Annotation: This 215-nucleotide sequence from Xylanimonas cellulosilytica belongs to the Rfam family "Actinobacteria sRNA Ms_IGR-5". The family's RNA type in Rfam is small RNA. Pairs were carried over by alignment from the consensus structure.
RNA sequence: ACAUCAGAAGGGAGGUGAUCCGAGAACAUGAAGUUCCUUCGGACCGAUGAGGUGGCCGCGCGCUAGCGCGUCCUGAUUCUCCCGUCGCCGACACCCGUCAGGGCCGACGACGACAGGACUCGGUGGCGACCUCGACGCGACCACCGGAGCCCGCGGGCGCCGUGCCCUCGUCCAGCACGGCAGGGAGGCGACUCCCAGCCCGCGGGCUCUUCCAU
Dot-bracket structure: ..............(((.(...................................).))).(((((.((.((.(((......................................))).)).)).)))))..................((((((((((((.((((((.........)))))).................))))))))))))......